A member of the RNA family "TPP riboswitch aptamer (THI element)" from Mycoplasmopsis gallinacea, 97 nucleotides long. The source organism's lineage runs through Bacteria, Mycoplasmatota, Mycoplasmoidales, Metamycoplasmataceae and Mycoplasmopsis.
RNA sequence: ACGUAAGGACAGGGGUGCUUGUAAUUUUACAAGCUGAGAAAUACUCUUAGAAGCUGAACUAGGUAAUGCUAGCGGAGCGAGUCGGUAUUUUAUUUUC
Numbered sequence: 001a002c003g004u005a006a007g008g009a010c011a012g013g014g015g016u017g018c019u020u021g022u023a024a025u026u027u028u029a030c031a032a033g034c035u036g037a038g039a040a041a042u043a044c045u046c047u048u049a050g051a052a053g054c055u056g057a058a059c060u061a062g063g064u065a066a067u068g069c070u071a072g073c074g075g076a077g078c079g080a081g082u083c084g085g086u087a088u089u090u091u092a093u094u095u096u097c
Base pairs, nucleotide, nucleotide: 008083009082010081011047012046013045014044016041017034018033019032020031021030053078054077055076059072060071061070062069